This 223-nucleotide RNA sequence from Burkholderia cenocepacia belongs to the Rfam family "Group II catalytic intron D1-D4-6". Taxonomically the source falls in Burkholderia cenocepacia (Bacteria, Pseudomonadota, Burkholderiaceae, Burkholderia cepacia complex). Rfam's curators write: Group II introns are found in rRNA, tRNA and mRNA of organelles in fungi, plants and protists, and also in mRNA in bacteria.
RNA sequence: AAAGUCCCCGACAUUGCAAGAACUAGCGAUUCACGAUUUCCCCGAGUCAUGCGUGGCCAGCCGCGAGGCGGGUUGCGAAGCGUUGACAGGGGCGCUGAUAGGCCAGCCAUUGAGCCACGAAAUGGAUACAUUCCCGAGUGCUGACGUACUACUGUAUGCGGAAGGCAACAUCGCGCGGCGCGCUAUCGCGAGCGCUGCGCGGACUCGGCGUGGUCUGAGACCC
Numbered sequence: 001a002a003a004g005u006c007c008c009c010g011a012c013a014u015u016g017c018a019a020g021a022a023c024u025a026g027c028g029a030u031u032c033a034c035g036a037u038u039u040c041c042c043c044g045a046g047u048c049a050u051g052c053g054u055g056g057c058c059a060g061c062c063g064c065g066a067g068g069c070g071g072g073u074u075g076c077g078a079a080g081c082g083u084u085g086a087c088a089g090g091g092g093c094g095c096u097g098a099u100a101g102g103c104c105a106g107c108c109a110u111u112g113a114g115c116c117a118c119g120a121a122a123u124g125g126a127u128a129c130a131u132u133c134c135c136g137a138g139u140g141c142u143g144a145c146g147u148a149c150u151a152c153u154g155u156a157u158g159c160g161g162a163a164g165g166c167a168a169c170a171u172c173g174c175g176c177g178g179c180g181c182g183c184u185a186u187c188g189c190g191a192g193c194g195c196u197g198c199g200c201g202g203a204c205u206c207g208g209c210g211u212g213g214u215c216u217g218a219g220a221c222c223c
Stems, first nucleotide, its partner, number of pairs: 013037004020032003024191001026189002040092004046087004050082002052077007060069003111217001112215001114214006134208006140166003145160004171202011